[Rfam]
RNA sequence: CUGUUUGAUAACUCACUCAACCUGGGUGUGAUGUGUAAUUCAAUCCAUCACAACCUCCUUGAGUGAGCGAUUGAGCAU
Number, nucleotide and partner (000 for none) at each position: 001c000002u000003g000004u000005u000006u000007g000008a000009u069010a000011a000012c067013u066014c065015a064016c063017u062018c061019a060020a059021c000022c000023u000024g055025g054026g000027u052028g051029u050030g049031a048032u047033g046034u000035g000036u000037a000038a000039u000040u000041c000042a000043a000044u000045c000046c033047a032048u031049c030050a029051c028052a027053a000054c025055c024056u000057c000058c000059u020060u019061g018062a017063g016064u015065g014066a013067g012068c000069g009070a000071u000072u000073g000074a000075g000076c000077a000078u000
RNA: mir-67 microRNA precursor family